[Rfam]
RNA: Alphaproteobacterial ar14
RNA sequence: AGGAAUCGCGUUCCACGGGGCUCUCCUCCUCCCAAGCCUCGUGAGCGUGCAACGCCGGCGGGACCUCCUCCUCCCAAUCCCGCCAGCUCCAACGACGCCCGCCAGUACCUCCUCCCACUGGCGGGCGUUCGU
Numbered sequence: 001a002g003g004a005a006u007c008g009c010g011u012u013c014c015a016c017g018g019g020g021c022u023c024u025c026c027u028c029c030u031c032c033c034a035a036g037c038c039u040c041g042u043g044a045g046c047g048u049g050c051a052a053c054g055c056c057g058g059c060g061g062g063a064c065c066u067c068c069u070c071c072u073c074c075c076a077a078u079c080c081c082g083c084c085a086g087c088u089c090c091a092a093c094g095a096c097g098c099c100c101g102c103c104a105g106u107a108c109c110u111c112c113u114c115c116c117a118c119u120g121g122c123g124g125g126c127g128u129u130c131g132u
Stems, first nucleotide, its partner, number of pairs: 007047003015042007054087002057084007096127011